[Rfam]
Nucleotides: 061
Stems, first nucleotide, its partner, number of pairs: 017045009027035001
Number, partner (000 for none) and nucleotide at each position: 001000u002000g003000c004000g005000a006000c007000a008000c009000c010000c011000a012000u013000u014000a015000a016000a017045g018044g019043a020042g021041u022040a023039g024038u025037u026000c027035u028000c029000c030000a031000c032000u033000c034000a035027a036000c037025a038024a039023c040022u041021a042020c043019u044018u045017u046000a047000c048000c049000a050000u051000a052000u053000u054000c055000u056000a057000a058000a059000u060000u061000c
Plastid-psbN 5UTR RNA: a 61-nucleotide RNA from Nicotiana attenuata. The organism belongs to Nicotiana, within Eukaryota. Rfam 15.1 lists 2,345 matches to the family in 397 species. Plastid psbN is a non-coding RNA (ncRNA) recognised in plastids. It was reported as a conserved 11 stem-loop in the prime untranslated region (5UTR) of psbN genes.